The record is a 143-nucleotide RNA from Methylocystis echinoides, which matches "Alphaproteobacterial sRNA BjrC1505" in Rfam.
By type it is a small RNA.
The organism belongs to Methylocystis, within Bacteria.
[Rfam]
RNA sequence: GCGGGCGUUAACGAAAAAUUCACACUGCGGGGCUAACUUGACCAUUAGUCCAAUUCGUUGGGCCCGAGUGGCCUCUUCUUCUCCACUCGUCCUUUAUGCCUCCCUGUCAUGACUUCGAGAGCCGCUGCCGCGGCUCUUUUUUU
Numbered sequence: 001g002c003g004g005g006c007g008u009u010a011a012c013g014a015a016a017a018a019u020u021c022a023c024a025c026u027g028c029g030g031g032g033c034u035a036a037c038u039u040g041a042c043c044a045u046u047a048g049u050c051c052a053a054u055u056c057g058u059u060g061g062g063c064c065c066g067a068g069u070g071g072c073c074u075c076u077u078c079u080u081c082u083c084c085a086c087u088c089g090u091c092c093u094u095u096a097u098g099c100c101u102c103c104c105u106g107u108c109a110u111g112a113c114u115u116c117g118a119g120a121g122c123c124g125c126u127g128c129c130g131c132g133g134c135u136c137u138u139u140u141u142u143u
Base pairs, nucleotide, nucleotide: 001045003043004042006013015039016038020035023032025030049062050061051060052059066088067087068086069085070084071083096107097106098105117138118137119136120135121134122133123132124131125130
Dot-bracket structure: (.((.(......).((...(..(.(....).)..)..))..)).)...((((......))))...((((((...........)))))).......(((......))).........(((((((((....))))))))).....